[Rfam]
RNA sequence: CCAGCAUCUCCAGGUAGGCCCAGCUGUCCUACAGAGAACCCUUGAGUUGGGCCCACAGGGAGUCUGG
Numbered sequence: 001c002c003a004g005c006a007u008c009u010c011c012a013g014g015u016a017g018g019c020c021c022a023g024c025u026g027u028c029c030u031a032c033a034g035a036g037a038a039c040c041c042u043u044g045a046g047u048u049g050g051g052c053c054c055a056c057a058g059g060g061a062g063u064c065u066g067g
Stems, first nucleotide, its partner, number of pairs: 001067004006063002009060003014056002017053002020044001022042002026032002
RNA: MAT2A 3'UTR stem loop E